[Rfam]
RNA sequence: CUGGAAUGAUGAAAGUUAGCCAAAGCACAUUGUGUUGUGCUCCUCUAGACAUCAUAUAUAUCGGUCGCUUUGGUGAAAAGUUCCUUUCCGCCAAGCACAAGAUGAGAUGACUAGAGUUGAAGCUUGCAUCAAUGGUGAUAAAAAUUGAGAUUGGUAACUUGCUGACCAGA
Numbered sequence: 001c002u003g004g005a006a007u008g009a010u011g012a013a014a015g016u017u018a019g020c021c022a023a024a025g026c027a028c029a030u031u032g033u034g035u036u037g038u039g040c041u042c043c044u045c046u047a048g049a050c051a052u053c054a055u056a057u058a059u060a061u062c063g064g065u066c067g068c069u070u071u072g073g074u075g076a077a078a079a080g081u082u083c084c085u086u087u088c089c090g091c092c093a094a095g096c097a098c099a100a101g102a103u104g105a106g107a108u109g110a111c112u113a114g115a116g117u118u119g120a121a122g123c124u125u126g127c128a129u130c131a132a133u134g135g136u137g138a139u140a141a142a143a144a145u146u147g148a149g150a151u152u153g154g155u156a157a158c159u160u161g162c163u164g165a166c167c168a169g170a
Base pairs, nucleotide, nucleotide: 001169002168003167004166